[Rfam]
RNA sequence: AGGCAACCUCUUGAUUCGUAUUCAUUGAUCAUUGUGGUGUUUAUUUGCUCGUAAAUCGAUGUAAAAUGUUUUUGCUCUUCAGAUUUGCCGAGAUUGGAAUACUUAGGUUUUCCAUUUCAUGAAGUUAGUCUAGUAAAUCGAAAGCACAUU
Numbered sequence: 001a002g003g004c005a006a007c008c009u010c011u012u013g014a015u016u017c018g019u020a021u022u023c024a025u026u027g028a029u030c031a032u033u034g035u036g037g038u039g040u041u042u043a044u045u046u047g048c049u050c051g052u053a054a055a056u057c058g059a060u061g062u063a064a065a066a067u068g069u070u071u072u073u074g075c076u077c078u079u080c081a082g083a084u085u086u087g088c089c090g091a092g093a094u095u096g097g098a099a100u101a102c103u104u105a106g107g108u109u110u111u112c113c114a115u116u117u118c119a120u121g122a123a124g125u126u127a128g129u130c131u132a133g134u135a136a137a138u139c140g141a142a143a144g145c146a147c148a149u150u
Stems, first nucleotide, its partner, number of pairs: 002041004007037002009034001012031005069144003074139001076137001081131005087125002092117002
RNA: Small nucleolar RNA snoR77
Organism: Zostera marina